[Rfam]
RNA sequence: GUCACUCUGGAAAGCAGGGCGGGAGCCUCGACGGCGUCCACCCUCACCGACGGUGAAAGCCGGCGUGCCCCCGGGCGUGCCGGUGAAGCUCUCAGGUUGAGAUGACAGAGGGGGAGGC
Numbered sequence: 001g002u003c004a005c006u007c008u009g010g011a012a013a014g015c016a017g018g019g020c021g022g023g024a025g026c027c028u029c030g031a032c033g034g035c036g037u038c039c040a041c042c043c044u045c046a047c048c049g050a051c052g053g054u055g056a057a058a059g060c061c062g063g064c065g066u067g068c069c070c071c072c073g074g075g076c077g078u079g080c081c082g083g084u085g086a087a088g089c090u091c092u093c094a095g096g097u098u099g100a101g102a103u104g105a106c107a108g109a110g111g112g113g114g115a116g117g118c
Stems, first nucleotide, its partner, number of pairs: 002113002005110005016044004046097003049093002053091001055089001059084011